[Rfam]
RNA sequence: UUUCCAGUCAGGCUCCUGGCUUGAGUCCAGCUCUCAGCUACCUCCAGGCUCUAGCCAAGACCUGACUACAAC
Numbered sequence: 001u002u003u004c005c006a007g008u009c010a011g012g013c014u015c016c017u018g019g020c021u022u023g024a025g026u027c028c029a030g031c032u033c034u035c036a037g038c039u040a041c042c043u044c045c046a047g048g049c050u051c052u053a054g055c056c057a058a059g060a061c062c063u064g065a066c067u068a069c070a071a072c
Stems, first nucleotide, its partner, number of pairs: 007066003011062002014059001017057005023051002029039003

Rfam assigns this 72-nucleotide RNA sequence from Neotoma lepida to the family "mir-344 microRNA precursor family". On this family, see Chiang et al., Genes Dev 2010: "Mammalian microRNAs: experimental evaluation of novel and previously annotated genes". The source organism's lineage runs through Eukaryota, Deuterostomia, Craniata, Neotominae and Neotoma.